Overview: A member of the RNA family "c-di-AMP riboswitch aptamer (ydaO/yuaA leader)" from Bacillus sp. SJS, 142 nucleotides long. This family represents a conserved RNA structure found upstream of the ydaO and yuaA genes in Bacillus subtilis and related genes in other bacteria. The match comes from Rfam's covariance-model search (78 bits).
Nucleotides: 142
Base pairs, nucleotide, nucleotide: 011127012126013125014124018034019033020032021031022030023029035122036121037120038119039118040117045054046053055107056106057105063076064075065074066073079102080101081100082099
Number, partner (000 for none) and nucleotide at each position: 001000a002000a003000u004000u005000a006000a007000a008000g009000a010000c011127g012126g013125c014124u015000u016000a017000g018034u019033c020032c021031c022030u023029g024000g025000u026000a027000c028000a029023c030022a031021g032020g033019g034018a035122a036121c037120g038119g039118a040117g041000g042000a043000a044000c045054c046053a047000a048000u049000u050000u051000u052000u053046u054045g055107g056106g057105g058000u059000u060000a061000a062000u063076u064075c065074u066073g067000c068000a069000g070000c071000a072000g073066c074065a075064g076063a077000a078000a079102g080101g081100a082099u083000g084000a085000g086000a087000a088000a089000c090000u091000c092000u093000u094000u095000c096000g097000c098000c099082a100081u101080c102079c103000u104000a105057c106056c107055c108000g109000u110000c111000a112000g113000c114000u115000a116000a117040c118039u119038u120037c121036g122035u123000c124014g125013g126012c127011u128000a129000a130000a131000g132000c133000g134000a135000a136000g137000g138000a139000g140000g141000u142000c